[Rfam]
FMN riboswitch aptamer (RFN element): a 131-nucleotide RNA sequence from Herbinix hemicellulosilytica. Taxonomically the source falls in Herbinix (Bacteria, Bacillota, Clostridia, Lachnospiraceae). Rfam links the family to the GO term FMN binding.
RNA sequence: GCAAAUCUUCGGGGCAGGGUGAAAUUCCCGACCGGCGGUAUAGUCCGCGAAUCACAGUAAAUAAAUUUUACUGUGACCGAUUUGGUGAAAUUCCAAAACCGACAGUAAAGUCUGGAUGAGAGAAGAAUAAU
Numbered sequence: 001g002c003a004a005a006u007c008u009u010c011g012g013g014g015c016a017g018g019g020u021g022a023a024a025u026u027c028c029c030g031a032c033c034g035g036c037g038g039u040a041u042a043g044u045c046c047g048c049g050a051a052u053c054a055c056a057g058u059a060a061a062u063a064a065a066u067u068u069u070a071c072u073g074u075g076a077c078c079g080a081u082u083u084g085g086u087g088a089a090a091u092u093c094c095a096a097a098a099c100c101g102a103c104a105g106u107a108a109a110g111u112c113u114g115g116a117u118g119a120g121a122g123a124a125g126a127a128u129a130a131u
Base pairs, nucleotide, nucleotide: 004128006126007125008124009123010122017029018028019027031111032110033101034100035048036047037046038045043099044098052076053075054074055073081097082096083095084094085093103114104113105112
Record summary: A search with the family's covariance model found it, with a score of 118 bits.